[Rfam]
RNA sequence: UAGGAUCAAUGAUGAUUGAUAAAAACUGCGUUAUCUAUAUGUAAUUUCCUUAAAAGGGAUUGAAGACAAUUUUAUUAUUCUGAGAUCCAUU
Numbered sequence: 001u002a003g004g005a006u007c008a009a010u011g012a013u014g015a016u017u018g019a020u021a022a023a024a025a026c027u028g029c030g031u032u033a034u035c036u037a038u039a040u041g042u043a044a045u046u047u048c049c050u051u052a053a054a055a056g057g058g059a060u061u062g063a064a065g066a067c068a069a070u071u072u073u074a075u076u077a078u079u080c081u082g083a084g085a086u087c088c089a090u091u
Stems, first nucleotide, its partner, number of pairs: 002090001003088004

This 91-nucleotide RNA from Camellia sinensis belongs to the Rfam family "Small nucleolar RNA snoR27". The family is grouped with related families in Rfam's "snR68 clan".